[Rfam]
RNA sequence: AGGACUGAGGGAUAUGCUUAGAAUGAAAGAUAUACUAGAAAAAAACAACCAAUCAAGACAGAAGAUAAUAGGUAUUUCUUUAACGUUCCUGCAUAGCUCACCGGUGUCUUUUCAAGGUAGCGUCCGUUAAAAGUUACGUCCUUCAAUCUUUCUUGAUU
Numbered sequence: 001a002g003g004a005c006u007g008a009g010g011g012a013u014a015u016g017c018u019u020a021g022a023a024u025g026a027a028a029g030a031u032a033u034a035c036u037a038g039a040a041a042a043a044a045a046c047a048a049c050c051a052a053u054c055a056a057g058a059c060a061g062a063a064g065a066u067a068a069u070a071g072g073u074a075u076u077u078c079u080u081u082a083a084c085g086u087u088c089c090u091g092c093a094u095a096g097c098u099c100a101c102c103g104g105u106g107u108c109u110u111u112u113c114a115a116g117g118u119a120g121c122g123u124c125c126g127u128u129a130a131a132a133g134u135u136a137c138g139u140c141c142u143u144c145a146a147u148c149u150u151u152c153u154u155g156a157u158u
Stems, first nucleotide, its partner, number of pairs: 001150004006145008014094004021088005038054002061081005108133005116125002
Description: The family of this 158-nucleotide sequence from Listeria monocytogenes is "Listeria sRNA rli22". It is annotated as a small RNA. On this family, see Toledo-Arana et al., Nature 2009: "The Listeria transcriptional landscape from saprophytism to virulence". The family's consensus secondary structure was predicted with RNAalifold. Lineage of the source: Bacteria > Bacillota > Bacilli > Caryophanales > Listeria.